RNA sequence: ACCAUAUUUAUUUUCCGAGUAUACUUUUCUAAGUUUUAUAAAAUAUGAAUUGUAUACCAUUGGGUAUAAAAGGAAACUUUUAUACCUCCCGCAUUUGGAAAGGAAGGGCAUAUUUCAAAUA
Numbered sequence: 001a002c003c004a005u006a007u008u009u010a011u012u013u014u015c016c017g018a019g020u021a022u023a024c025u026u027u028u029c030u031a032a033g034u035u036u037u038a039u040a041a042a043a044u045a046u047g048a049a050u051u052g053u054a055u056a057c058c059a060u061u062g063g064g065u066a067u068a069a070a071a072g073g074a075a076a077c078u079u080u081u082a083u084a085c086c087u088c089c090c091g092c093a094u095u096u097g098g099a100a101a102g103g104a105a106g107g108g109c110a111u112a113u114u115u116c117a118a119a120u121a
Stems, first nucleotide, its partner, number of pairs: 004114001011107006019057006027049003033044004062087011088098002